[Rfam]
RNA sequence: CACUUAUCCAGAGAGGUGGAGGGACUGGCCCUACGAAACCUCGGCAACAGACUCAUUAUGAGCACUGUGCCAAUUCCAUCAGACAAUUGUCUGAGAGAUGAGUC
Numbered sequence: 001c002a003c004u005u006a007u008c009c010a011g012a013g014a015g016g017u018g019g020a021g022g023g024a025c026u027g028g029c030c031c032u033a034c035g036a037a038a039c040c041u042c043g044g045c046a047a048c049a050g051a052c053u054c055a056u057u058a059u060g061a062g063c064a065c066u067g068u069g070c071c072a073a074u075u076c077c078a079u080c081a082g083a084c085a086a087u088u089g090u091c092u093g094a095g096a097g098a099u100g101a102g103u104c
Base pairs, nucleotide, nucleotide: 002103003102004101005100006099007098008097013042014041015040016039017038021031022030023029026078027077028076043071044070045069046068048067049066050063052062053061075096080093081092082091083090084089